[Rfam]
RNA sequence: CUGGGCUACGGGGACAUGUACCCAGAGACGUGGUCCGGCAUGCUUGUGGGUGCGCUGUGUGCCCUGGCUGGUGUGUUGACCAUCGCCAUGCCUGUGCCCGUCAUCGUGAAUAAU
Numbered sequence: 001c002u003g004g005g006c007u008a009c010g011g012g013g014a015c016a017u018g019u020a021c022c023c024a025g026a027g028a029c030g031u032g033g034u035c036c037g038g039c040a041u042g043c044u045u046g047u048g049g050g051u052g053c054g055c056u057g058u059g060u061g062c063c064c065u066g067g068c069u070g071g072u073g074u075g076u077u078g079a080c081c082a083u084c085g086c087c088a089u090g091c092c093u094g095u096g097c098c099c100g101u102c103a104u105c106g107u108g109a110a111u112a113a114u
Base pairs, nucleotide, nucleotide: 002113004111007108008107009106010105011104013102014101015100018097019096020095021094037077038076039075040074049063050062051061

Rfam assigns this 114-nucleotide RNA from Clupea harengus to the family "Potassium channel RNA editing signal". Lineage of the source: Eukaryota > Opisthokonta > Osteoglossocephalai > Clupeoidei > Clupea. Pairs were carried over by alignment from the consensus structure, which is taken from published work. It scores 102 bits against the family's covariance model. By type it is a cis-regulatory element.